Nucleotides: 131
Base pairs, nucleotide, nucleotide: 015122016121017120018119019118020117021116023114033094034093036092037091042089043088044087045086049059050058066082067081068080069079070078071077
Number, partner (000 for none) and nucleotide at each position: 001000u002000a003000u004000u005000c006000u007000g008000c009000c010000c011000a012000u013000g014000c015122g016121g017120g018119a019118a020117g021116g022000a023114u024000g025000a026000g027000a028000a029000u030000c031000u032000u033094c034093g035000a036092u037091u038000a039000a040000g041000g042089u043088u044087c045086g046000a047000u048000u049059c050058g051000a052000g053000c054000a055000u056000a057000g058050c059049g060000a061000g062000a063000c064000a065000g066082c067081g068080u069079u070078g071077c072000c073000g074000c075000a076000g077071g078070c079069a080068a081067c082066g083000a084000c085000c086045c087044g088043a089042a090000g091037g092036g093034c094033g095000a096000a097000g098000c099000g100000c101000g102000c103000a104000g105000c106000g107000c108000u109000g110000a111000g112000u113000c114023a115000u116021c117020c118019u119018u120017c121016c122015c123000c124000c125000a126000c127000u128000a129000c130000c131000a
RtT RNA: a 131-nucleotide RNA from Citrobacter freundii.
On this family, see Bosl and Kersten, Nucleic Acids Res 1991: "A novel RNA product of the tyrT operon of Escherichia coli".
A search with the family's covariance model found it, with a score of 131 bits.
Its family is annotated with cellular response to amino acid starvation in the Gene Ontology.
About the family: This family represents a bacterial cis-regulatory element known as RtT RNA. The exact function of RtT is unknown although it is thought that it may be involved in changing the cellular response in relation to amino acid starvation.